[Rfam]
RNA sequence: UGUCACAAAGAUUAAGCCACGCAUGUCUAAAUUCGCAAGGCUGGUACAGUGGAACUGCGAAUGGCUUAUUAAAUCAGUUAUGGUUCCUUUGGUUGCUCGCUCCUCUCCUACUUGGAUAACUGUGGCAAUGCUAGAGCUAAUGCAUGCUGACGGGUGCUGACCCCCUUUGUGGGGGGAUGCGUGCAUUUAUCAGAUCAAAACCAACGCGGUCAGCCUCCCUCCGGCCCCGGCUUGGGGGUGGGCCCUGGCGGCUUUGGCGACUCUAGAUAACCUCUGGCCAAUCUUGCACGCCCCCCCUUGGUGGUGACAACCCAUUCAAACGUCUGCCCUAUCAACUUUUGAUGAUAGUUGCCAUGCCUAUAAUGGUGACCACGGGUGACAGGGAAUCAGGAUUCGAUUCCAGAGAGGGAGUCUGAGAAACAGCUACCACGUCCAAGGAAGGCAGCAGGUUACCCACUCCUGACACAGGGAGGUAGUGACGAAAAAUAACAUCACUGGACUCUUUCGAGGCCCUGUAAUUUGAAUGAGUCCACUUUAAAUCCUUUCCUGAGGAUCCA
Numbered sequence: 001u002g003u004c005a006c007a008a009a010g011a012u013u014a015a016g017c018c019a020c021g022c023a024u025g026u027c028u029a030a031a032u033u034c035g036c037a038a039g040g041c042u043g044g045u046a047c048a049g050u051g052g053a054a055c056u057g058c059g060a061a062u063g064g065c066u067u068a069u070u071a072a073a074u075c076a077g078u079u080a081u082g083g084u085u086c087c088u089u090u091g092g093u094u095g096c097u098c099g100c101u102c103c104u105c106u107c108c109u110a111c112u113u114g115g116a117u118a119a120c121u122g123u124g125g126c127a128a129u130g131c132u133a134g135a136g137c138u139a140a141u142g143c144a145u146g147c148u149g150a151c152g153g154g155u156g157c158u159g160a161c162c163c164c165c166u167u168u169g170u171g172g173g174g175g176g177a178u179g180c181g182u183g184c185a186u187u188u189a190u191c192a193g194a195u196c197a198a199a200a201c202c203a204a205c206g207c208g209g210u211c212a213g214c215c216u217c218c219c220u221c222c223g224g225c226c227c228c229g230g231c232u233u234g235g236g237g238g239u240g241g242g243c244c245c246u247g248g249c250g251g252c253u254u255u256g257g258c259g260a261c262u263c264u265a266g267a268u269a270a271c272c273u274c275u276g277g278c279c280a281a282u283c284u285u286g287c288a289c290g291c292c293c294c295c296c297c298u299u300g301g302u303g304g305u306g307a308c309a310a311c312c313c314a315u316u317c318a319a320a321c322g323u324c325u326g327c328c329c330u331a332u333c334a335a336c337u338u339u340u341g342a343u344g345a346u347a348g349u350u351g352c353c354a355u356g357c358c359u360a361u362a363a364u365g366g367u368g369a370c371c372a373c374g375g376g377u378g379a380c381a382g383g384g385a386a387u388c389a390g391g392a393u394u395c396g397a398u399u400c401c402a403g404a405g406a407g408g409g410a411g412u413c414u415g416a417g418a419a420a421c422a423g424c425u426a427c428c429a430c431g432u433c434c435a436a437g438g439a440a441g442g443c444a445g446c447a448g449g450u451u452a453c454c455c456a457c458u459c460c461u462g463a464c465a466c467a468g469g470g471a472g473g474u475a476g477u478g479a480c481g482a483a484a485a486a487u488a489a490c491a492u493c494a495c496u497g498g499a500c501u502c503u504u505u506c507g508a509g510g511c512c513c514u515g516u517a518a519u520u521u522g523a524a525u526g527a528g529u530c531c532a533c534u535u536u537a538a539a540u541c542c543u544u545u546c547c548u549g550a551g552g553a554u555c556c557a
Stems, first nucleotide, its partner, number of pairs: 003484001006481001009477001010451001016450003021446002025058002030056001032054001037050001065405003075326003081320001084319002090314003111146001113144002120136002123133003154182004161175005187270005201257003236245003282307002285304001289303004328376003335367003342364002345361004382400002384395004407428002410425003430441001432439002452474003458470005491520001494516002497513002500509003528548001532544001
RNA: Eukaryotic small subunit ribosomal RNA, nucleotides 32 to 588
Organism: Lipotes vexillifer